[Rfam]
RNA sequence: ACUCUUCAUGUUCCCUCAAAGGCUUCCAGUAUUCGGUAGUAUUCUUUUAUAACUACUUGAAUGCUGGAGGCCUUUGAAGGAGACUUGAAGAUU
Numbered sequence: 001a002c003u004c005u006u007c008a009u010g011u012u013c014c015c016u017c018a019a020a021g022g023c024u025u026c027c028a029g030u031a032u033u034c035g036g037u038a039g040u041a042u043u044c045u046u047u048u049a050u051a052a053c054u055a056c057u058u059g060a061a062u063g064c065u066g067g068a069g070g071c072c073u074u075u076g077a078a079g080g081a082g083a084c085u086u087g088a089a090g091a092u093u
Stems, first nucleotide, its partner, number of pairs: 006088003010084002012081003016077008025068010
Overview
MIR862_2 microRNA precursor family: a 93-nucleotide sequence from Arachis hypogaea. The organism belongs to Arachis, within Eukaryota.